[Rfam]
RNA sequence: UCAGUCCUUAUCGAGGGGGGAGCAAAGUGCUCAAUGAGGUCCCAUCCGAGAGUACUUCUGCCGACAACCUAUCAACCCCUUAUAAGAUGCUUGCCACUUUUGCGAGCAUCAAUUUUUGGAAAA
Number, nucleotide and partner (000 for none) at each position: 001u000002c000003a000004g000005u019006c018007c017008u016009u015010a000011u000012c000013g000014a000015g009016g008017g007018g006019g005020g000021a000022g061023c060024a059025a000026a056027g055028u054029g053030c052031u051032c050033a000034a000035u000036g000037a000038g047039g046040u000041c000042c000043c000044a000045u000046c039047c038048g000049a000050g032051a031052g030053u029054a028055c027056u026057u000058c000059u024060g023061c022062c000063g000064a000065c000066a000067a000068c000069c000070u000071a000072u000073c000074a000075a000076c000077c000078c000079c000080u000081u000082a000083u000084a000085a000086g110087a109088u108089g107090c106091u105092u000093g000094c000095c104096a000097c102098u000099u000100u000101u000102g097103c000104g095105a091106g090107c089108a088109u087110c086111a000112a000113u000114u000115u000116u000117u000118g000119g000120a000121a000122a000123a000